[Rfam]
RNA sequence: CUCUCUUACAAACAUGUGUUUUUGGUUUCUUGUCCUUGAACACGUGAUCAAAGGCAAAGAAAUGAUUUGGAGAAAUCUGUGGCUAGUGUGCUCCUUGCACUCUCAAGAUCAACCAUCUCACAUAG
Numbered sequence: 001c002u003c004u005c006u007u008a009c010a011a012a013c014a015u016g017u018g019u020u021u022u023u024g025g026u027u028u029c030u031u032g033u034c035c036u037u038g039a040a041c042a043c044g045u046g047a048u049c050a051a052a053g054g055c056a057a058a059g060a061a062a063u064g065a066u067u068u069g070g071a072g073a074a075a076u077c078u079g080u081g082g083c084u085a086g087u088g089u090g091c092u093c094c095u096u097g098c099a100c101u102c103u104c105a106a107g108a109u110c111a112a113c114c115a116u117c118u119c120a121c122a123u124a125g
Stems, first nucleotide, its partner, number of pairs: 002054003006050001015044007024030002064117002067115001085103002088100004
Dot-bracket structure: .(((.(........(((((((..((...)).......))))))).....).))).........((.(.................((.((((.....)))).))...........)))........
Shown here is a 125-nucleotide sequence from Jaculus jaculus, a member of the family "Small nucleolar RNA SNORA38". Its family is annotated with nucleolus, RNA processing and Cajal body in the Gene Ontology. Rfam 15.1 lists 628 matches to the family in 149 species. From the family's description: ACA38 is a member of the H/ACA class of snoRNA that guide the sites of modification of uridines to pseudouridines. The match comes from Rfam's covariance-model search (95 bits). Pairs were carried over by alignment from the consensus structure, which was predicted with RNAfold.